[Rfam]
RNA sequence: AUGUAUCUUCAGGGCAGGGUGUGAUUCCCGACCGGUGGUAAAGGUUUUCCUGAGCCCACGAGCCGUAUGGCUGAUUUGGUGUGAUUCCAAAGCCGACAGUACAGUCUGGAUGGGAGAAGAUUGUU
Numbered sequence: 001a002u003g004u005a006u007c008u009u010c011a012g013g014g015c016a017g018g019g020u021g022u023g024a025u026u027c028c029c030g031a032c033c034g035g036u037g038g039u040a041a042a043g044g045u046u047u048u049c050c051u052g053a054g055c056c057c058a059c060g061a062g063c064c065g066u067a068u069g070g071c072u073g074a075u076u077u078g079g080u081g082u083g084a085u086u087c088c089a090a091a092g093c094c095g096a097c098a099g100u101a102c103a104g105u106c107u108g109g110a111u112g113g114g115a116g117a118a119g120a121u122u123g124u125u
Stems, first nucleotide, its partner, number of pairs: 005121006017029003031105002033095002035059004054093002062071003075091005097108003
A member of the RNA family "FMN riboswitch aptamer (RFN element)" from Dialister invisus, 125 nucleotides long. From the family's description: The RFN element is a highly conserved domain that is found frequently in the 5'-untranslated regions of prokaryotic mRNAs that encode for flavin mononucleotide (FMN) biosynthesis and transport proteins. This element is a metabolite-dependent riboswitch that directly binds FMN in the absence of proteins. In Bacillus subtilis, the riboswitch most likely controls gene expression by causing premature transcription termination within the 5' untranslated region of the ribDEAHT operon and precluding access to the ribosome-binding site of ypaA mRNA.The FMN riboswitch structure, reported in present an FMN-bound six-stem junction, adopts a butterfly-like scaffold, stapled together by opposingly directed but nearly identically folded peripheral domains. The match comes from Rfam's covariance-model search (119 bits). Pairs were carried over by alignment from the consensus structure, which is taken from published work.